[Rfam]
Nucleotides: 079
Base pairs, nucleotide, nucleotide: 001079002078003077004076005075007072008071009070010069011068012067016042017041018040023037024036025035027033045063046062047061048060049059050058051057
Number, partner (000 for none) and nucleotide at each position: 001079c002078u003077g004076a005075u006000a007072u008071c009070a010069c011068g012067c013000a014000a015000a016042g017041g018040g019000u020000g021000g022000a023037c024036g025035u026000c027033u028000u029000c030000c031000c032000g033027g034000a035025a036024c037023g038000a039000g040018c041017c042016c043000g044000u045063u046062u047061u048060u049059g050058c051057c052000a053000u054000a055000c056000a057051g058050g059049c060048a061047g062046a063045a064000a065000a066000c067012g068011c069010g070009u071008g072007a073000a074000c075005a076004u077003c078002a079001g

A member of the RNA family "L4-Archaeoglobi ribosomal protein leades", 79 nucleotides long.
It is annotated as a cis-regulatory leader.